[Rfam]
RNA sequence: AAUUAACCCAAGGGGAGCUCCAUAUUCCGGGGCUGAGAGGAAGGUGGAAACCUUCGACCCUUUGAACCUGACCCAGAUAAUACUGGCGGAGGGAUGGGAAAUACCCUCCAA
Numbered sequence: 001a002a003u004u005a006a007c008c009c010a011a012g013g014g015g016a017g018c019u020c021c022a023u024a025u026u027c028c029g030g031g032g033c034u035g036a037g038a039g040g041a042a043g044g045u046g047g048a049a050a051c052c053u054u055c056g057a058c059c060c061u062u063u064g065a066a067c068c069u070g071a072c073c074c075a076g077a078u079a080a081u082a083c084u085g086g087c088g089g090a091g092g093g094a095u096g097g098g099a100a101a102u103a104c105c106c107u108c109c110a111a
Base pairs, nucleotide, nucleotide: 007098008097009096010095011061012060013059014058017033018032019031020030021029040055041054042053043052044051067092068091069090073086074085075084076083
Description: The record is a 111-nucleotide RNA from Thermosipho sp. 1063, which matches "TPP riboswitch aptamer (THI element)" in Rfam. The organism belongs to Thermosipho, within Bacteria. The base pairs follow the family's consensus structure, which is taken from published work. Rfam links the family to the GO term thiamine pyrophosphate binding.